[Rfam]
RNA sequence: UGACGCCAGUUCCUCUUCCUGUCAGCAGCAGGUCAGGAGGAUUUUAGAGCGUCAAAGAAAAACUGGGUCCAUUUCACCCAGGAAGUUGCAGGCUGUUCUCAGUCAGUCACACACUUCCUGGUUUUGCGGGACCCUACACAA
Numbered sequence: 001u002g003a004c005g006c007c008a009g010u011u012c013c014u015c016u017u018c019c020u021g022u023c024a025g026c027a028g029c030a031g032g033u034c035a036g037g038a039g040g041a042u043u044u045u046a047g048a049g050c051g052u053c054a055a056a057g058a059a060a061a062a063c064u065g066g067g068u069c070c071a072u073u074u075c076a077c078c079c080a081g082g083a084a085g086u087u088g089c090a091g092g093c094u095g096u097u098c099u100c101a102g103u104c105a106g107u108c109a110c111a112c113a114c115u116u117c118c119u120g121g122u123u124u125u126g127c128g129g130g131a132c133c134c135u136a137c138a139c140a141a
Stems, first nucleotide, its partner, number of pairs: 001054006014041005020035002023032001066133005078121009091108005
RNA: Small nucleolar RNA SNORA79